[Rfam]
RNA sequence: GCAGUAGGCGGGACGAUCGCUCGCGCGGCAUUCGUUGCCAAGCGGGAGGAAAGUCCGGGCUCCAUAGGACAGGAUGGUCGAUAACGUCGACCGGUCGCGAGGCUAGGGAAAGUGCAGCAGAGAGCAAACCGCCGAACGGUUUACUGGUUCGCCAGUCAAACGCGUGGUAAGGGUGAAACGGUGCGGUAAGAGCGCACCAGCAGUCGGGGUGACUCGAUUGGCUUGGUAAACCCCAUCCGGAGCUAGACCAAACAGGGUGCAGAAGCGGUCCGCUUCACGAUGACACCCGGGUAGGUCGCGAUUGAGGCGACGAGCAAUCGUCGUGCACAGAUAAAUGAUCGUCACCGAAGCGCAAGCGGCGGUACAGAACCCGGCUUACAAGCCUAUCUGCAAUC
Numbered sequence: 001g002c003a004g005u006a007g008g009c010g011g012g013a014c015g016a017u018c019g020c021u022c023g024c025g026c027g028g029c030a031u032u033c034g035u036u037g038c039c040a041a042g043c044g045g046g047a048g049g050a051a052a053g054u055c056c057g058g059g060c061u062c063c064a065u066a067g068g069a070c071a072g073g074a075u076g077g078u079c080g081a082u083a084a085c086g087u088c089g090a091c092c093g094g095u096c097g098c099g100a101g102g103c104u105a106g107g108g109a110a111a112g113u114g115c116a117g118c119a120g121a122g123a124g125c126a127a128a129c130c131g132c133c134g135a136a137c138g139g140u141u142u143a144c145u146g147g148u149u150c151g152c153c154a155g156u157c158a159a160a161c162g163c164g165u166g167g168u169a170a171g172g173g174u175g176a177a178a179c180g181g182u183g184c185g186g187u188a189a190g191a192g193c194g195c196a197c198c199a200g201c202a203g204u205c206g207g208g209g210u211g212a213c214u215c216g217a218u219u220g221g222c223u224u225g226g227u228a229a230a231c232c233c234c235a236u237c238c239g240g241a242g243c244u245a246g247a248c249c250a251a252a253c254a255g256g257g258u259g260c261a262g263a264a265g266c267g268g269u270c271c272g273c274u275u276c277a278c279g280a281u282g283a284c285a286c287c288c289g290g291g292u293a294g295g296u297c298g299c300g301a302u303u304g305a306g307g308c309g310a311c312g313a314g315c316a317a318u319c320g321u322c323g324u325g326c327a328c329a330g331a332u333a334a335a336u337g338a339u340c341g342u343c344a345c346c347g348a349a350g351c352g353c354a355a356g357c358g359g360c361g362g363u364a365c366a367g368a369a370c371c372c373g374g375c376u377u378a379c380a381a382g383c384c385u386a387u388c389u390g391c392a393a394u395c
Stems, first nucleotide, its partner, number of pairs: 001391004005386005011379001012343007020046005027039002051377003055374005060242004067271004072238005077091005092106001093104004107233002112231002114227002129172002131168004137162002180198006200222001201220008246297004255288005262276005306326001307324007
Rfam assigns this 395-nucleotide sequence from Rhodopirellula sp. MGV to the family "Bacterial RNase P class A".
It scores 276 bits against the family's covariance model.
From the family's description: Ribonuclease P (RNase P) is a ubiquitous endoribonuclease, found in archaea, bacteria and eukarya as well as chloroplasts and mitochondria.
Pairs were carried over by alignment from the consensus structure, which is taken from published work.
The family's RNA type in Rfam is ribozyme.